[Rfam]
RNA sequence: UCUCUCCUUCGGGGCAGGGUGUAAUUCCCGACCGGCGGUAUAGCCCGCGAGCCGCAUAUAAGCGGUUGAUCUGGUGAAAUUCCAGGGCCGACAGUAUAGUCUGGAUGGUAGAAGGAUAGC
Number, nucleotide and partner (000 for none) at each position: 001u000002c000003u118004c000005u116006c115007c114008u113009u112010c111011g000012g000013g000014g000015c000016a000017g029018g028019g027020u000021g000022u000023a000024a000025u000026u000027c019028c018029c017030g000031a100032c099033c090034g089035g048036c047037g046038g045039u000040a000041u000042a000043g088044c087045c038046c037047g036048c035049g000050a000051g066052c065053c064054g000055c000056a000057u000058a000059u000060a000061a000062g000063c000064g053065g052066u051067u000068g000069a000070u086071c085072u084073g083074g082075u000076g000077a000078a000079a000080u000081u000082c074083c073084a072085g071086g070087g044088c043089c034090g033091a000092c103093a102094g101095u000096a000097u000098a000099g032100u031101c094102u093103g092104g000105a000106u000107g000108g000109u000110a000111g010112a009113a008114g007115g006116a005117u000118a003119g000120c000